[Rfam]
RNA sequence: GAUUAUUGAAGUAGAGACUGUGCUGUUACACACCCCUUGGGUCAAAAGAAAUGUGGGAAAGGGCACACCUACCGAUAAUU
Numbered sequence: 001g002a003u004u005a006u007u008g009a010a011g012u013a014g015a016g017a018c019u020g021u022g023c024u025g026u027u028a029c030a031c032a033c034c035c036c037u038u039g040g041g042u043c044a045a046a047a048g049a050a051a052u053g054u055g056g057g058a059a060a061g062g063g064c065a066c067a068c069c070u071a072c073c074g075a076u077a078a079u080u
Base pairs, nucleotide, nucleotide: 001080002079003078004077005076006075007074008073011029012028013027014026020066021065022064023063024062031048032042033041034040035039053072054071055070056069057068
skipping-rope RNA: an 80-nucleotide sequence.